Shown here is a 136-nucleotide sequence from Tatumella morbirosei, a member of the family "Yersinia sRNA 155(RyfD)". It scores 84 bits against the family's covariance model. On this family, see Righetti et al., Proc Natl Acad Sci U S A 2016: "Temperature-responsive in vitro RNA structurome of Yersinia pseudotuberculosis". By type it is a small RNA. The sRNA was identified by and is confirmed to have a stable secondary structure by using genome-wide structure probing at different temperatures. The function is unknown.
RNA sequence: CUGGACGAUCCUGUACGUAUAAUUUUUCUUUGUUUUCCGGGUCAUUAAACUUGAAUAUUUGAGGGAUUGGCCUCAUUUAAUCUCCUGUAGCAUUUUGACCUUUAACAGGAGGAAUUAUGCGUCUGGAUCGUCUAAC
Numbered sequence: 001c002u003g004g005a006c007g008a009u010c011c012u013g014u015a016c017g018u019a020u021a022a023u024u025u026u027u028c029u030u031u032g033u034u035u036u037c038c039g040g041g042u043c044a045u046u047a048a049a050c051u052u053g054a055a056u057a058u059u060u061g062a063g064g065g066a067u068u069g070g071c072c073u074c075a076u077u078u079a080a081u082c083u084c085c086u087g088u089a090g091c092a093u094u095u096u097g098a099c100c101u102u103u104a105a106c107a108g109g110a111g112g113a114a115u116u117a118u119g120c121g122u123c124u125g126g127a128u129c130g131u132c133u134a135a136c
Base pairs, nucleotide, nucleotide: 002134003133004132005131006130007129008128009127010126011125015122016121017120018119019118021116022115023114024040025039050063051062052061053060054059065077066076068075069074081112082111083110084109085108086107087106088105